[Rfam]
RNA sequence: UCAAACAGCUAGGGGAGCCUUCGGGCUGAGAGUGAGCGUAGGAGUUCUGACCCUUGAACCUGAUGUGGUUUGUACCGCCGGAGGAAAGCUAGCACUCAAGUGC
Numbered sequence: 001u002c003a004a005a006c007a008g009c010u011a012g013g014g015g016a017g018c019c020u021u022c023g024g025g026c027u028g029a030g031a032g033u034g035a036g037c038g039u040a041g042g043a044g045u046u047c048u049g050a051c052c053c054u055u056g057a058a059c060c061u062g063a064u065g066u067g068g069u070u071u072g073u074a075c076c077g078c079c080g081g082a083g084g085a086a087a088g089c090u091a092g093c094a095c096u097c098a099a100g101u102g103c
Base pairs, nucleotide, nucleotide: 007090008089009088010087011054012053013052014051016048017026018025019024034047035046036045037044059084060083061082065078066077067076068075
This 103-nucleotide RNA from Halodesulfovibrio spirochaetisodalis belongs to the Rfam family "TPP riboswitch aptamer (THI element)". Rfam's curators write: Vitamin B(1) in its active form thiamin pyrophosphate (TPP) is an essential coenzyme that is synthesised by coupling of pyrimidine and thiazole moieties in bacteria. The source organism's lineage runs through Bacteria, Thermodesulfobacteriota, Desulfovibrionales, Desulfovibrionaceae and Halodesulfovibrio.